[Rfam]
Nucleotides: 086
Stems, first nucleotide, its partner, number of pairs: 001078007009070001014044001017039001026035003046063005
Number, partner (000 for none) and nucleotide at each position: 001078g002077c003076c004075c005074g006073g007072g008000c009070g010000u011000g012000c013000a014044g015000a016000g017039a018000a019000u020000a021000a022000a023000a024000g025000a026035c027034c028033c029000g030000u031000a032000a033028g034027g035026g036000a037000a038000a039017u040000a041000a042000u043000c044014u045000c046063g047062c048061c049060u050059a051000a052000c053000u054000g055000u056000g057000u058000a059050u060049a061048g062047g063046u064000g065000u066000u067000u068000a069000g070009c071000a072007c073006c074005c075004g076003g077002g078001c079000g080000c081000c082000c083000u084000c085000u086000a
A member of the RNA family "sRNA-Xcc1" from Parasutterella muris, 86 nucleotides long.
A reference for the family is Schmidtke et al. (2011), "Genome-wide transcriptome analysis of the plant pathogen Xanthomonas identifies sRNAs with putative virulence functions", Nucleic Acids Res.
A search with the family's covariance model found it, with a score of 66 bits.
Pairs were carried over by alignment from the consensus structure, which was predicted with RNAalifold.